[Rfam]
RNA: Acido-Lenti-1 RNA
RNA sequence: CCCAGGGCUGAGCCCUGGGCUGUAUUAGCGCGCCCCUUCGGGGCU
Numbered sequence: 001c002c003c004a005g006g007g008c009u010g011a012g013c014c015c016u017g018g019g020c021u022g023u024a025u026u027a028g029c030g031c032g033c034c035c036c037u038u039c040g041g042g043g044c045u
Base pairs, nucleotide, nucleotide: 001019002018003017004016005015006014007013008012032044033043034042035041036040
Dot-bracket structure: ((((((((...))))))))............(((((...))))).